[Rfam]
RNA sequence: UGUCUCCUCCACCCUCCUCCAAAGGUGGAUUGAGCCCGAACGACAGUUCGGGCUUUUUUUC
Numbered sequence: 001u002g003u004c005u006c007c008u009c010c011a012c013c014c015u016c017c018u019c020c021a022a023a024g025g026u027g028g029a030u031u032g033a034g035c036c037c038g039a040a041c042g043a044c045a046g047u048u049c050g051g052g053c054u055u056u057u058u059u060u061c
Base pairs, nucleotide, nucleotide: 008029009028010027011026012025013024033054034053035052036051037050038049039048040047

Background: This 61-nucleotide RNA from Burkholderia glumae belongs to the Rfam family "Betaproteobacteria toxic small RNA". Overexpression in amino aid rich medium attenuates growth, suggesting role in repressing amino acid intake and metabolism. A reference for the family is Kimelman et al. (2012), "A vast collection of microbial genes that are toxic to bacteria", Genome Res. The match comes from Rfam's covariance-model search (68 bits). Taxonomically the source falls in Burkholderia glumae (Bacteria, Pseudomonadati, Betaproteobacteria, Burkholderiales).